mir-544 microRNA precursor family: an 84-nucleotide sequence from Loxodonta africana.
Pairs were carried over by alignment from the consensus structure, which was predicted with RNAalifold.
The organism belongs to Loxodonta, within Eukaryota.
Gene Ontology terms of the family: RISC complex and miRNA-mediated post-transcriptional gene silencing.
RNA sequence: AUCACUUGGGAUCUUGCUAAAAAAGCAGAUUCUGGUUUGAAACCUAAGAGUCUGCAUUUCUAACAAGCUCUCAGGUGAUGUCGA
Numbered sequence: 001a002u003c004a005c006u007u008g009g010g011a012u013c014u015u016g017c018u019a020a021a022a023a024a025g026c027a028g029a030u031u032c033u034g035g036u037u038u039g040a041a042a043c044c045u046a047a048g049a050g051u052c053u054g055c056a057u058u059u060c061u062a063a064c065a066a067g068c069u070c071u072c073a074g075g076u077g078a079u080g081u082c083g084a
Stems, first nucleotide, its partner, number of pairs: 003077003008071003013067004018062002021059003025055005031049003